A member of the RNA family "Enterococcus sRNA 84" from Candidatus Enterococcus dunnyi, 87 nucleotides long. The source organism's lineage runs through Bacteria, Bacillota, Bacilli, Enterococcaceae and Enterococcus. A search with the family's covariance model found it, with a score of 101 bits. Pairs were carried over by alignment from the consensus structure, which was predicted with RNAfold. On this family, see Innocenti et al., RNA 2015: "Whole-genome mapping of 5' RNA ends in bacteria by tagged sequencing: a comprehensive view in Enterococcus faecalis". It is annotated as an antisense RNA.
[Rfam]
RNA sequence: UACCAACAACAACCUUUUUAUUUUUCAUUUUACUCUUAUUGAGUAAUACUCCUUUUCCAUCGGUCAGUUUGACCGGUGGUUUUUUCU
Numbered sequence: 001u002a003c004c005a006a007c008a009a010c011a012a013c014c015u016u017u018u019u020a021u022u023u024u025u026c027a028u029u030u031u032a033c034u035c036u037u038a039u040u041g042a043g044u045a046a047u048a049c050u051c052c053u054u055u056u057c058c059a060u061c062g063g064u065c066a067g068u069u070u071g072a073c074c075g076g077u078g079g080u081u082u083u084u085u086c087u
Base pairs, nucleotide, nucleotide: 030046031045032044033043034042035041057079058078059077060076061075062074063073064072065071